Rfam assigns this 86-nucleotide RNA from Pseudoalteromonas sp. NBT06-2 to the family "c-di-GMP-I riboswitch aptamer".
[Rfam]
RNA sequence: GCUUGAAAAGGGCAAACUUAAGGAAACUUAAGUACGCAAAGCCACCGGCCUAAAGGCUAACAACCUAAGGCAGCGGAGCUACCGAG
Numbered sequence: 001g002c003u004u005g006a007a008a009a010g011g012g013c014a015a016a017c018u019u020a021a022g023g024a025a026a027c028u029u030a031a032g033u034a035c036g037c038a039a040a041g042c043c044a045c046c047g048g049c050c051u052a053a054a055g056g057c058u059a060a061c062a063a064c065c066u067a068a069g070g071c072a073g074c075g076g077a078g079c080u081a082c083c084g085a086g
Stems, first nucleotide, its partner, number of pairs: 012037002017032006040080003045076003048071003055065002058062001
Rfam describes the family as follows. GEMM was predicted in a large-scale screen for bacterial structured RNA regulatory elements. The organism belongs to Pseudoalteromonas, within Bacteria.